The family of this 136-nucleotide sequence from Gopherus evgoodei is "Small nucleolar RNA SNORD94".
Its family is annotated with RNA processing and nucleolus in the Gene Ontology.
The match comes from Rfam's covariance-model search (96 bits).
On this family, see Galardi et al., Mol Cell Biol 2002: "Purified box C/D snoRNPs are able to reproduce site-specific 2'-O-methylation of target RNA in vitro".
Lineage of the source: Eukaryota > Gnathostomata > Amniota > Sauria > Gopherus.

[Rfam]
RNA sequence: GUGGCAAUGAUGAUUGUCGCAGGGGUACUGACCUCCGCUAGAUCAUGGGAGCUGAAUGUGAACUCUGUUUAUUUUUCCAGUGUGAUGAACAUGUGGAAACAGGUUCACAUGAAAACUUUGCCUAGAACUGAGCCAU
Numbered sequence: 001g002u003g004g005c006a007a008u009g010a011u012g013a014u015u016g017u018c019g020c021a022g023g024g025g026u027a028c029u030g031a032c033c034u035c036c037g038c039u040a041g042a043u044c045a046u047g048g049g050a051g052c053u054g055a056a057u058g059u060g061a062a063c064u065c066u067g068u069u070u071a072u073u074u075u076u077c078c079a080g081u082g083u084g085a086u087g088a089a090c091a092u093g094u095g096g097a098a099a100c101a102g103g104u105u106c107a108c109a110u111g112a113a114a115a116c117u118u119u120g121c122c123u124a125g126a127a128c129u130g131a132g133c134c135a136u
Stems, first nucleotide, its partner, number of pairs: 001136005